A member of the RNA family "Ribosomal protein L10 leader" from Sulfobacillus sp. hq2, 131 nucleotides long. Rfam classes the family as a cis-regulatory leader. The match comes from Rfam's covariance-model search (60 bits). On this family, see Yakhnin et al., Nucleic Acids Res 2015: "Ribosomal protein L10(L12)4 autoregulates expression of the Bacillus subtilis rplJL operon by a transcription attenuation mechanism". Lineage of the source: Bacteria > Bacillati > Bacillota > Eubacteriales > Sulfobacillus.

[Rfam]
Nucleotides: 131
Base pairs, nucleotide, nucleotide: 028058029057030056031055032054034046035045036044094116095115096114097113098112099111100110101109
Number, partner (000 for none) and nucleotide at each position: 001000g002000u003000u004000a005000g006000g007000g008000u009000a010000a011000a012000c013000u014000c015000c016000g017000a018000a019000c020000c021000c022000a023000a024000g025000a026000c027000a028058g029057u030056g031055g032054g033000u034046g035045c036044c037000u038000u039000a040000a041000u042000c043000a044036g045035g046034c047000u048000u049000a050000a051000u052000a053000c054032c055031c056030c057029a058028c059000u060000u061000a062000g063000g064000u065000a066000g067000g068000a069000a070000u071000u072000u073000g074000g075000a076000u077000a078000u079000g080000u081000u082000u083000u084000g085000u086000c087000u088000a089000c090000a091000g092000a093000u094116c095115c096114u097113c098112u099111g100110c101109c102000g103000u104000u105000c106000u107000u108000g109101g110100g111099u112098g113097g114096a115095g116094g117000c118000a119000u120000u121000u122000u123000u124000u125000u126000g127000u128000u129000u130000a131000a